[Rfam]
RNA: Bacterial RNase P class A
Organism: Clostridiales bacterium KA00134
RNA sequence: GAAGUAAGCCGAUCAAUUGCAGGAAACUGAGGAAAGUCCGCGCUCCACAGAGCAAGGAUGCCAGCUAACGGCUGGUGGGGGCGACCCUAAGGCUAGUGCAACAGAGAUAUACCGCCUGAUAAUAUUUUAUUGGGUAAGGGUGGAAAGGUGAGGUAAGAGCUUACCAGCUUGGCAGAGAUGUCAAGGCUAUGUAAACCCCAUUCGGAGCAAAACCAAAUAGGAUUAAGAGUGGCUGCUCGUCACUCCCGGUAGGUAGGUUGCUAGAACUUAUUGGCGACAAUAAGUCAAGACAGAUAAUUGAUUAAUACAGAACGCGGCUUAUAGGCUUACUUCGGAC
Numbered sequence: 001g002a003a004g005u006a007a008g009c010c011g012a013u014c015a016a017u018u019g020c021a022g023g024a025a026a027c028u029g030a031g032g033a034a035a036g037u038c039c040g041c042g043c044u045c046c047a048c049a050g051a052g053c054a055a056g057g058a059u060g061c062c063a064g065c066u067a068a069c070g071g072c073u074g075g076u077g078g079g080g081g082c083g084a085c086c087c088u089a090a091g092g093c094u095a096g097u098g099c100a101a102c103a104g105a106g107a108u109a110u111a112c113c114g115c116c117u118g119a120u121a122a123u124a125u126u127u128u129a130u131u132g133g134g135u136a137a138g139g140g141u142g143g144a145a146a147g148g149u150g151a152g153g154u155a156a157g158a159g160c161u162u163a164c165c166a167g168c169u170u171g172g173c174a175g176a177g178a179u180g181u182c183a184a185g186g187c188u189a190u191g192u193a194a195a196c197c198c199c200a201u202u203c204g205g206a207g208c209a210a211a212a213c214c215a216a217a218u219a220g221g222a223u224u225a226a227g228a229g230u231g232g233c234u235g236c237u238c239g240u241c242a243c244u245c246c247c248g249g250u251a252g253g254u255a256g257g258u259u260g261c262u263a264g265a266a267c268u269u270a271u272u273g274g275c276g277a278c279a280a281u282a283a284g285u286c287a288a289g290a291c292a293g294a295u296a297a298u299u300g301a302u303u304a305a306u307a308c309a310g311a312a313c314g315c316g317g318c319u320u321a322u323a324g325g326c327u328u329a330c331u332u333c334g335g336a337c
Base pairs, nucleotide, nucleotide: 001333002332003331004330005329006328007327008326009325010324011322012302013301014300015299016298017297018296020029021028022027034320035319036318038317039316040315041314042313043207044206045205046204052237056203057202058201059200060199061075062074063073064072065071076090077088078087079086080085091198092197096196097195098192099191100190112139113138114135115134116133117132118131119130120129121128122127147165148164149163150162151161152160167187168185169184170183171182172181173180174179211259212258213257214256221247229243230242231241232240233239266285267284268283269282270281271280272279273278